U1 spliceosomal RNA: a 164-nucleotide RNA from Hibiscus trionum. It is annotated as a spliceosomal small nuclear RNA. The family's consensus secondary structure is taken from published work.

RNA sequence: AUACAUACCUGGACGGGGUCGAUGGGUGAUCAAGGAGACUCAUGGCCUAGGUUGGUAGCCUCCAUUGCACAUCAAGGAGGUGUAUCAGCCUAACAUCUCCCUUUUGUGGAGAGUGUACGUCAUAAUUUGUGGCAGUUGGGGGCUCGUGUUCGCGCGGCCCCCUC
Number, nucleotide and partner (000 for none) at each position: 001a000002u000003a000004c000005a000006u000007a000008c000009c000010u000011g000012g121013a120014c119015g118016g048017g047018g046019u045020c044021g043022a000023u042024g041025g040026g039027u038028g000029a000030u000031c000032a000033a000034g000035g000036a000037g000038a027039c026040u025041c024042a023043u021044g020045g019046c018047c017048u016049a091050g090051g089052u000053u088054g000055g085056u084057a083058g000059c000060c080061u079062c077063c076064a000065u000066u000067g000068c000069a000070c000071a000072u000073c000074a000075a000076g063077g062078a000079g061080g060081u000082g000083u057084a056085u055086c000087a000088g053089c051090c050091u049092a000093a116094c115095a114096u112097c111098u110099c000100c109101c108102u000103u000104u000105u000106g000107u000108g101109g100110a098111g097112a096113g000114u095115g094116u093117a000118c015119g014120u013121c012122a000123u000124a000125a000126u000127u000128u000129g000130u000131g000132g000133c000134a000135g000136u000137u000138g162139g161140g160141g159142g000143c000144u000145c156146g155147u154148g153149u000150u000151c000152g000153c148154g147155c146156g145157g000158c000159c141160c140161c139162c138163u000164c000